[Rfam]
RNA sequence: GCGCUGGUGUAGCUCAGCGGUUACUUCAUUUGGCUUUUUCUGAAGACAGUCCUUUUGAUCGACCCCGCAGCGCUCUCUAGCGUUUUC
Numbered sequence: 001g002c003g004c005u006g007g008u009g010u011a012g013c014u015c016a017g018c019g020g021u022u023a024c025u026u027c028a029u030u031u032g033g034c035u036u037u038u039u040c041u042g043a044a045g046a047c048a049g050u051c052c053u054u055u056u057g058a059u060c061g062a063c064c065c066c067g068c069a070g071c072g073c074u075c076u077c078u079a080g081c082g083u084u085u086u087c
Base pairs, nucleotide, nucleotide: 002082003081004080005079006078007077012071013070014069017068018067019066020065026062027061